About this RNA
Shown here is a 511-nucleotide RNA from Streptomyces sp. PT12, a member of the family "Saccharopolyspora sRNA 350". Pairs were carried over by alignment from the consensus structure, which was predicted with RNAfold.
[Rfam]
RNA sequence: ACGAGGCUGUGCUCCCACAGGCCCGCGUCGGCGUCGGUGAGCACGCCGUCGCCGUGGAAGUCGCCGUCGCCCAGGACGCCGAGCUGCGUCUCGGUGUCGUACGCCCCCGCGCCGCGCACCGCGAGCUUGCCGUGGGCGAUCAGGACGACCCGGUCCGCGGGGCCCCCGGCCGCGAGCAGCACGUCGCCGGCCGCGAAGUCCCGCUGGACGCAGGCGUCGGCGAGCGCGGCGAGCGUCUCGGCGUCGUCGAACCCGGCGAGCGCGGGGAGCUCGCCCAGCUCGGCGGGGAUCACCCUGACCUCGGCGCCGGUCGAGGUGAACUCGACGCGGCCGUUCCCCACGGUGUGGGUCAGCCUGCGGUUCACCCGGAACGUCCCGCCGGAAACUUGCACCCACGGCAGCACCCGCAACAGCCACCGCGAGGUGAUCCCCUGCAUUUGCGGAGGGGUCUUGGUGGUGGUGGCGAGAUUGCGCGCGGCAGAGGUGUCAAGGCUCAGCCGGGGCUGCGCCG
Numbered sequence: 001a002c003g004a005g006g007c008u009g010u011g012c013u014c015c016c017a018c019a020g021g022c023c024c025g026c027g028u029c030g031g032c033g034u035c036g037g038u039g040a041g042c043a044c045g046c047c048g049u050c051g052c053c054g055u056g057g058a059a060g061u062c063g064c065c066g067u068c069g070c071c072c073a074g075g076a077c078g079c080c081g082a083g084c085u086g087c088g089u090c091u092c093g094g095u096g097u098c099g100u101a102c103g104c105c106c107c108c109g110c111g112c113c114g115c116g117c118a119c120c121g122c123g124a125g126c127u128u129g130c131c132g133u134g135g136g137c138g139a140u141c142a143g144g145a146c147g148a149c150c151c152g153g154u155c156c157g158c159g160g161g162g163c164c165c166c167c168g169g170c171c172g173c174g175a176g177c178a179g180c181a182c183g184u185c186g187c188c189g190g191c192c193g194c195g196a197a198g199u200c201c202c203g204c205u206g207g208a209c210g211c212a213g214g215c216g217u218c219g220g221c222g223a224g225c226g227c228g229g230c231g232a233g234c235g236u237c238u239c240g241g242c243g244u245c246g247u248c249g250a251a252c253c254c255g256g257c258g259a260g261c262g263c264g265g266g267g268a269g270c271u272c273g274c275c276c277a278g279c280u281c282g283g284c285g286g287g288g289a290u291c292a293c294c295c296u297g298a299c300c301u302c303g304g305c306g307c308c309g310g311u312c313g314a315g316g317u318g319a320a321c322u323c324g325a326c327g328c329g330g331c332c333g334u335u336c337c338c339c340a341c342g343g344u345g346u347g348g349g350u351c352a353g354c355c356u357g358c359g360g361u362u363c364a365c366c367c368g369g370a371a372c373g374u375c376c377c378g379c380c381g382g383a384a385a386c387u388u389g390c391a392c393c394c395a396c397g398g399c400a401g402c403a404c405c406c407g408c409a410a411c412a413g414c415c416a417c418c419g420c421g422a423g424g425u426g427a428u429c430c431c432c433u434g435c436a437u438u439u440g441c442g443g444a445g446g447g448g449u450c451u452u453g454g455u456g457g458u459g460g461u462g463g464c465g466a467g468a469u470u471g472c473g474c475g476c477g478g479c480a481g482a483g484g485u486g487u488c489a490a491g492g493c494u495c496a497g498c499c500g501g502g503g504c505u506g507c508g509c510c511g
Base pairs, nucleotide, nucleotide: 006393008391009390010389011388021331022330025328026327028325029324030323031322034319035318042315043311044310048308050306051305052304053303054302057236061232062231063230064229065228066227067226068114069113071111078106081104083102086100087099088098090096121225122224125221126220129217130216133213136211137210138209141206142205143204146203147202153194157192161188162187163186168177238298239297240296243293244292246290247289248288253286254285255284257282258281259280260279261278262274263273264272332345333344334343335342354382355381357379358378359377360376364374365373394434395433397431398430400428402426403425404424406421407420408419440479441478443476445474447472451467452466454464455463481509483505484504485503487502488501491498
Overview:
Rfam 15.1 lists 1,170 matches to the family in 705 species. It scores 53 bits against the family's covariance model.